[Rfam]
The family of this 98-nucleotide RNA sequence from Sphaerisporangium rufum is "Glycine riboswitch aptamer".
RNA sequence: UCAUCCCGUGCGGGAGAGCGCCCUGGCACCCGGCCAGGUCCCCUGAAGGAGCAAGCCCUCCCCGCGAACCUCACAAGGCAAAGGACCGCGCGGGCCAG
Numbered sequence: 001u002c003a004u005c006c007c008g009u010g011c012g013g014g015a016g017a018g019c020g021c022c023c024u025g026g027c028a029c030c031c032g033g034c035c036a037g038g039u040c041c042c043c044u045g046a047a048g049g050a051g052c053a054a055g056c057c058c059u060c061c062c063c064g065c066g067a068a069c070c071u072c073a074c075a076a077g078g079c080a081a082a083g084g085a086c087c088g089c090g091c092g093g094g095c096c097a098g
Base pairs, nucleotide, nucleotide: 006093007092008091009090010089011088012087013086020040022038023037024036025035042078043077044076045074049072050071051070055065056064

A search with the family's covariance model found it, with a score of 51 bits.